[Rfam]
RNA sequence: UUGACGGUGUAGUCCCAGGCCCCGGCGUCCUCGCCGGACAGGACCUGCUCGCCGAAGUAGGCGCCGUCGGCGAGGGUGCCCAGGACGGUCUCGUCGCCGUACUCGCCGGCGCCGAUCUUGUUGACCUUGCCGUGCGCGAUCAGGUAGACCUCGUCGGCGGGACGCCCGGCCUCGGCGAUGACGUCGCCGGGCUGGUACUCGCGCUGCUCGAAGCGCGAGGCGAGCGCGGAGAGGACCGAGUGGUCGGUGUAGCCGCGCAGCAGCGGCAGUUCGCACAGUUCCUCGGGGAUGACGCGGACGUCGGCGCCGACGUUGGUGAAGGUCACCCGCCCGUCGCCGACGGCGUAGCUGAGGCGGCGGUUGACGCGGUAGGCGCCGCCGUCGGCCUGCACCCACGGCAGCAGUUUCAGCAGCCAGCGGGAGGUGAUGCCCUGCAUCUGGGGAACGGACUUGGUGGUGGUGGCGAGGUUGCGGGCGGCUGCGGUGCUCAGGCUCAGCUGGGCGCGUUCGA
Numbered sequence: 001u002u003g004a005c006g007g008u009g010u011a012g013u014c015c016c017a018g019g020c021c022c023c024g025g026c027g028u029c030c031u032c033g034c035c036g037g038a039c040a041g042g043a044c045c046u047g048c049u050c051g052c053c054g055a056a057g058u059a060g061g062c063g064c065c066g067u068c069g070g071c072g073a074g075g076g077u078g079c080c081c082a083g084g085a086c087g088g089u090c091u092c093g094u095c096g097c098c099g100u101a102c103u104c105g106c107c108g109g110c111g112c113c114g115a116u117c118u119u120g121u122u123g124a125c126c127u128u129g130c131c132g133u134g135c136g137c138g139a140u141c142a143g144g145u146a147g148a149c150c151u152c153g154u155c156g157g158c159g160g161g162a163c164g165c166c167c168g169g170c171c172u173c174g175g176c177g178a179u180g181a182c183g184u185c186g187c188c189g190g191g192c193u194g195g196u197a198c199u200c201g202c203g204c205u206g207c208u209c210g211a212a213g214c215g216c217g218a219g220g221c222g223a224g225c226g227c228g229g230a231g232a233g234g235a236c237c238g239a240g241u242g243g244u245c246g247g248u249g250u251a252g253c254c255g256c257g258c259a260g261c262a263g264c265g266g267c268a269g270u271u272c273g274c275a276c277a278g279u280u281c282c283u284c285g286g287g288g289a290u291g292a293c294g295c296g297g298a299c300g301u302c303g304g305c306g307c308c309g310a311c312g313u314u315g316g317u318g319a320a321g322g323u324c325a326c327c328c329g330c331c332c333g334u335c336g337c338c339g340a341c342g343g344c345g346u347a348g349c350u351g352a353g354g355c356g357g358c359g360g361u362u363g364a365c366g367c368g369g370u371a372g373g374c375g376c377c378g379c380c381g382u383c384g385g386c387c388u389g390c391a392c393c394c395a396c397g398g399c400a401g402c403a404g405u406u407u408c409a410g411c412a413g414c415c416a417g418c419g420g421g422a423g424g425u426g427a428u429g430c431c432c433u434g435c436a437u438c439u440g441g442g443g444a445a446c447g448g449a450c451u452u453g454g455u456g457g458u459g460g461u462g463g464c465g466a467g468g469u470u471g472c473g474g475g476c477g478g479c480u481g482c483g484g485u486g487c488u489c490a491g492g493c494u495c496a497g498c499u500g501g502g503c504g505c506g507u508u509c510g511a
Stems, first nucleotide, its partner, number of pairs: 006393007014385002018331002024328002027324001029322002031319002039315003045309001050306006057236002062231001064229004068114004078106001080105001082103002085100005120225003125220002129216002133212001134209001136207003143200001146199002152195001157192002161188001163186001165180001169176002243293004248288001253286003257282001259280003263274003332345004354382007365373001394434002397431004402426002406421003410418001440479001443476001446473002449470001450468003454464002480510002484505002487502005
RNA: Saccharopolyspora sRNA 350